The record is a 101-nucleotide RNA from Lonsdalea quercina, which matches "Gammaprotebacteria rimP leader" in Rfam.
Pairs were carried over by alignment from the consensus structure, which is taken from published work.
By type it is a cis-regulatory leader.
The organism belongs to Lonsdalea, within Bacteria.
It scores 96 bits against the family's covariance model.

RNA sequence: GCGGUUAUCCGUGGUAAUAGGGUCCAGUUGCAUAAAGCCCCGUAUAUCGGGGUUUUUUGUUAUCUGACAACAGAAUUACUGGGCUAUUAAGCCCUUUUUUU
Numbered sequence: 001g002c003g004g005u006u007a008u009c010c011g012u013g014g015u016a017a018u019a020g021g022g023u024c025c026a027g028u029u030g031c032a033u034a035a036a037g038c039c040c041c042g043u044a045u046a047u048c049g050g051g052g053u054u055u056u057u058u059g060u061u062a063u064c065u066g067a068c069a070a071c072a073g074a075a076u077u078a079c080u081g082g083g084c085u086a087u088u089a090a091g092c093c094c095u096u097u098u099u100u101u
Stems, first nucleotide, its partner, number of pairs: 034056009081094004